[Rfam]
RNA sequence: GCGAGGGGAUGAUAGAAUUCAUAAGUCUGUCAAUCCACUGAAUAAUAAUCCUCUGAUGUUAACUAUGAAUCCCGACAGGUUCUGAUCGC
Numbered sequence: 001g002c003g004a005g006g007g008g009a010u011g012a013u014a015g016a017a018u019u020c021a022u023a024a025g026u027c028u029g030u031c032a033a034u035c036c037a038c039u040g041a042a043u044a045a046u047a048a049u050c051c052u053c054u055g056a057u058g059u060u061a062a063c064u065a066u067g068a069a070u071c072c073c074g075a076c077a078g079g080u081u082c083u084g085a086u087c088g089c
Stems, first nucleotide, its partner, number of pairs: 001089004

Small nucleolar RNA snoR14: an 89-nucleotide RNA sequence from Coffea canephora. Its Rfam clan is "SNORD110 clan". The base pairs follow the family's consensus structure.